[Rfam]
Overview: The record is a 98-nucleotide RNA sequence from a Pseudobdellovibrionaceae bacterium, which matches "Purine riboswitch aptamer" in Rfam. The base pairs follow the family's consensus structure, which is taken from published work. NCBI's taxonomy places the organism under Bacteria, Bdellovibrionota, Bdellovibrionia, Bdellovibrionales, Pseudobdellovibrionaceae.
RNA sequence: GCAUCAAGUCAAUUGAACCUAAGUAUAAGUCAGCAAUAUGGGCUGGCGUUUCUAUGAAACACCGUAAACGUUUCACUAUGGAGGGAUAUAUAUGUUAC
Numbered sequence: 001g002c003a004u005c006a007a008g009u010c011a012a013u014u015g016a017a018c019c020u021a022a023g024u025a026u027a028a029g030u031c032a033g034c035a036a037u038a039u040g041g042g043c044u045g046g047c048g049u050u051u052c053u054a055u056g057a058a059a060c061a062c063c064g065u066a067a068a069c070g071u072u073u074c075a076c077u078a079u080g081g082a083g084g085g086a087u088a089u090a091u092a093u094g095u096u097a098c
Base pairs, nucleotide, nucleotide: 018084019083020082023079024078025077030046031045032044033043034042056074057073058072059071060070